[Rfam]
RNA: TPP riboswitch aptamer (THI element)
Organism: Fodinibius halophilus
RNA sequence: ACCCAAGGUUGGGGGUGCUUGCAAUAGCAGGCUGAGAUCAUACCCUGAGAACCUGAACCGAUUAAGAUCGGCGUAGGGAAACCAUGGCAGCGGUAG
Numbered sequence: 001a002c003c004c005a006a007g008g009u010u011g012g013g014g015g016u017g018c019u020u021g022c023a024a025u026a027g028c029a030g031g032c033u034g035a036g037a038u039c040a041u042a043c044c045c046u047g048a049g050a051a052c053c054u055g056a057a058c059c060g061a062u063u064a065a066g067a068u069c070g071g072c073g074u075a076g077g078g079a080a081a082c083c084a085u086g087g088c089a090g091c092g093g094u095a096g
Stems, first nucleotide, its partner, number of pairs: 007083004011046004016040001017032005052077004058071004